[Rfam]
RNA sequence: AAGACUAUACUUUCAGGGAUCAUUUCUAUAGUUUGUGACUUGAGAAAUGUGUUUCUAAAGUGUAUGGUCUCACUGCCCACGAUGAAGAGUUGGUGAUGCUCCUUCUUGAACAUGAAGAAAGUAGAGACUUGGUUCAUCCUUGUUCUCUGCUACUGAUGACUGUUCACUGUUUCUUCUAGAGACGGUGUGUGAAGGAGUAUGAUCUGAGUGGU
Numbered sequence: 001a002a003g004a005c006u007a008u009a010c011u012u013u014c015a016g017g018g019a020u021c022a023u024u025u026c027u028a029u030a031g032u033u034u035g036u037g038a039c040u041u042g043a044g045a046a047a048u049g050u051g052u053u054u055c056u057a058a059a060g061u062g063u064a065u066g067g068u069c070u071c072a073c074u075g076c077c078c079a080c081g082a083u084g085a086a087g088a089g090u091u092g093g094u095g096a097u098g099c100u101c102c103u104u105c106u107u108g109a110a111c112a113u114g115a116a117g118a119a120a121g122u123a124g125a126g127a128c129u130u131g132g133u134u135c136a137u138c139c140u141u142g143u144u145c146u147c148u149g150c151u152a153c154u155g156a157u158g159a160c161u162g163u164u165c166a167c168u169g170u171u172u173c174u175u176c177u178a179g180a181g182a183c184g185g186u187g188u189g190u191g192a193a194g195g196a197g198u199a200u201g202a203u204c205u206g207a208g209u210g211g212u
Stems, first nucleotide, its partner, number of pairs: 001041003005037001006035002009032003015027004049065003054062001077211004096200010107189001110163003120151008128142001131139002166186009
The record is a 212-nucleotide sequence from Neogobius melanostomus, which matches "Small nucleolar RNA U3" in Rfam. The family has 87 seed sequences and 19,072 matches in Rfam 15.1. The organism belongs to Neogobius, within Eukaryota. Rfam links the family to the GO terms RNA processing and nucleolus. By type it is a C/D-box small nucleolar RNA. Its Rfam clan is "U3 clan". Small nucleolar RNAs (snoRNAs) are involved in the processing and modification of rRNA in the nucleolus. There are two main classes of snoRNAs: the box C/D class, and the box H/ACA class. U3 snoRNA is a member of the box C/D class. A search with the family's covariance model found it, with a score of 146 bits.